[Rfam]
RNA sequence: GGAUAUCACUUUUUGUUAUCCCCUUCCAAUAACUCAAUGACACGUAGGAUAACUUUUCCACGUGUCAUUGUGUUACUGGCCGGGAAUAGCAAAACAAUGUUAUCC
Numbered sequence: 001g002g003a004u005a006u007c008a009c010u011u012u013u014u015g016u017u018a019u020c021c022c023c024u025u026c027c028a029a030u031a032a033c034u035c036a037a038u039g040a041c042a043c044g045u046a047g048g049a050u051a052a053c054u055u056u057u058c059c060a061c062g063u064g065u066c067a068u069u070g071u072g073u074u075a076c077u078g079g080c081c082g083g084g085a086a087u088a089g090c091a092a093a094a095c096a097a098u099g100u101u102a103u104c105c
Stems, first nucleotide, its partner, number of pairs: 002104004011094009021084003026079003030075004035070011047058003
RNA: MIR6274 microRNA precursor family
Organism: Prunus avium